Background: The family of this 103-nucleotide RNA sequence from Pedobacter sp. BAL39 is "SAM riboswitch aptamer (S box leader)". NCBI's taxonomy places the organism under Bacteria, Pseudomonadati, Sphingobacteriia, Sphingobacteriales, Pedobacter.
RNA sequence: UACUUAUCCAGAAAGACUGAGGGAAAGGCCCUGUGAUGUCUUAGCAACCUGUUGAUUAAUAAGGUGCUAAUUCCUGUCCGCAACGUAGCGGAGAAGAUAAGUG
Numbered sequence: 001u002a003c004u005u006a007u008c009c010a011g012a013a014a015g016a017c018u019g020a021g022g023g024a025a026a027g028g029c030c031c032u033g034u035g036a037u038g039u040c041u042u043a044g045c046a047a048c049c050u051g052u053u054g055a056u057u058a059a060u061a062a063g064g065u066g067c068u069a070a071u072u073c074c075u076g077u078c079c080g081c082a083a084c085g086u087a088g089c090g091g092a093g094a095a096g097a098u099a100a101g102u103g
Stems, first nucleotide, its partner, number of pairs: 001103008013042005021031003026075003043068004048064002050061004072095001077092005
The sequence is in the family's curated seed alignment. Rfam links the family to the GO term regulation of gene expression.